Rfam assigns this 94-nucleotide RNA from Treponema maltophilum to the family "TD-2 RNA". The match comes from Rfam's covariance-model search (59 bits). A reference for the family is Weinberg et al. (2007), "Identification of 22 candidate structured RNAs in bacteria using the CMfinder comparative genomics pipeline", Nucleic Acids Res. Pairs were carried over by alignment from the consensus structure, which is taken from published work.

RNA sequence: CCCGGCACGGAUGCCGGAAAACUUUAUGUAACCGAGUUUGGCGAAGACAAACUCGAGGUAAAAAACGUACAGGGAUGUACGUUUUUUACACCUU
Number, nucleotide and partner (000 for none) at each position: 001c000002c017003c016004g015005g014006c013007a000008c000009g000010g000011a000012u000013g006014c005015c004016g003017g002018a000019a000020a000021a000022c000023u000024u000025u000026a000027u000028g000029u000030a000031a000032c000033c055034g054035a053036g052037u051038u050039u049040g048041g000042c046043g000044a000045a000046g042047a000048c040049a039050a038051a037052c036053u035054c034055g033056a000057g000058g089059u088060a087061a086062a085063a084064a083065a082066c081067g080068u079069a078070c077071a000072g000073g000074g000075a000076u000077g070078u069079a068080c067081g066082u065083u064084u063085u062086u061087u060088a059089c058090a000091c000092c000093u000094u000